RNA sequence: GGUAAAGAAAUUCGAUCCCUACAUAUAUGCUGGAGAAUAUGGCUCCAGUGUUUCUACCCGGUACCGUAAACACCGGACUAUGCAGGGAAAGCAACUUUUG
Numbered sequence: 001g002g003u004a005a006a007g008a009a010a011u012u013c014g015a016u017c018c019c020u021a022c023a024u025a026u027a028u029g030c031u032g033g034a035g036a037a038u039a040u041g042g043c044u045c046c047a048g049u050g051u052u053u054c055u056a057c058c059c060g061g062u063a064c065c066g067u068a069a070a071c072a073c074c075g076g077a078c079u080a081u082g083c084a085g086g087g088a089a090a091g092c093a094a095c096u097u098u099u100g
Stems, first nucleotide, its partner, number of pairs: 018086003022082004029049007058076005
This 100-nucleotide RNA from Lysinibacillus odysseyi belongs to the Rfam family "Purine riboswitch aptamer".
The family's consensus secondary structure is taken from published work.